This 97-nucleotide sequence belongs to the Rfam family "SAM-I/IV (S-adenosyl methionine) riboswitch aptamer". Gene Ontology terms of the family: S-adenosylmethionine metabolic process and regulation of gene expression. Rfam 15.1 lists 567 matches to the family in 508 species. The family's consensus secondary structure is taken from published work. The sequence is in the family's curated seed alignment.
RNA sequence: CAUUGUCAUCAAGAGUUGGGAUGACACCCACACCAACCUGCUUACCGAGCAAGGUGGUCAAACGAUGUGGCCUUAGGGCAACCAAUCGCGUGUCAGC
Numbered sequence: 001c002a003u004u005g006u007c008a009u010c011a012a013g014a015g016u017u018g019g020g021a022u023g024a025c026a027c028c029c030a031c032a033c034c035a036a037c038c039u040g041c042u043u044a045c046c047g048a049g050c051a052a053g054g055u056g057g058u059c060a061a062a063c064g065a066u067g068u069g070g071c072c073u074u075a076g077g078g079c080a081a082c083c084a085a086u087c088g089c090g091u092g093u094c095a096g097c
Stems, first nucleotide, its partner, number of pairs: 007067004015031001017030004032058003037054003040050003046090002070079003